[Rfam]
RNA sequence: GUCCAAGGUGAUUCCCUCUCCAAAGGGCUGACUGUGUGCCCUUUUCAGGAACGUAGCAACUUGGAAGAAAACCAGGCGUGCCUGAGGUCUCUGGUGGACAAGAAACUCUUGUUUCCUUUGCCCUCCUCUGGCUGCCUACAUGU
Numbered sequence: 001g002u003c004c005a006a007g008g009u010g011a012u013u014c015c016c017u018c019u020c021c022a023a024a025g026g027g028c029u030g031a032c033u034g035u036g037u038g039c040c041c042u043u044u045u046c047a048g049g050a051a052c053g054u055a056g057c058a059a060c061u062u063g064g065a066a067g068a069a070a071a072c073c074a075g076g077c078g079u080g081c082c083u084g085a086g087g088u089c090u091c092u093g094g095u096g097g098a099c100a101a102g103a104a105a106c107u108c109u110u111g112u113u114u115c116c117u118u119u120g121c122c123c124u125c126c127u128c129u130g131g132c133u134g135c136c137u138a139c140a141u142g143u
Stems, first nucleotide, its partner, number of pairs: 002065006009058002019050003022044007076133001079131001084126001086124001093116001096113002

Source information: Shown here is a 143-nucleotide RNA sequence, a member of the family "Small nucleolar RNA SNORA67". About the family: U67 belongs to the H/ACA class of snoRNAs which are thought to guide the sites of modification of uridines to pseudouridines. The base pairs follow the family's consensus structure, which was predicted with RNAalifold. Rfam's curators put it in the seed alignment.